The record is a 137-nucleotide RNA from Megalops atlanticus, which matches "U11 spliceosomal RNA" in Rfam. The family's RNA type in Rfam is spliceosomal small nuclear RNA. The family has 72 seed sequences and 2,595 matches in Rfam 15.1. The family's consensus secondary structure is taken from published work. Taxonomically the source falls in Megalops (Eukaryota, Craniata, Actinopteri, Elopocephala). It scores 109 bits against the family's covariance model.

RNA sequence: AAAAAGGGCGUGUACCGUGAAUGGUACAGGGGUGGGAUGGGAAACUAUCUCGCCCCUGCGGAAUCGACAUCAAAAGAUUUCGGACGCACAAUUUUUGUCACUUAGGGCUGCCGAUGAUCGUUUAUUUUGGCGCCCUU
Numbered sequence: 001a002a003a004a005a006g007g008g009c010g011u012g013u014a015c016c017g018u019g020a021a022u023g024g025u026a027c028a029g030g031g032g033u034g035g036g037a038u039g040g041g042a043a044a045c046u047a048u049c050u051c052g053c054c055c056c057u058g059c060g061g062a063a064u065c066g067a068c069a070u071c072a073a074a075a076g077a078u079u080u081c082g083g084a085c086g087c088a089c090a091a092u093u094u095u096u097g098u099c100a101c102u103u104a105g106g107g108c109u110g111c112c113g114a115u116g117a118u119c120g121u122u123u124a125u126u127u128u129g130g131c132g133c134c135c136u137u
Stems, first nucleotide, its partner, number of pairs: 008087004013026005027058012059082007105135004110131005116126003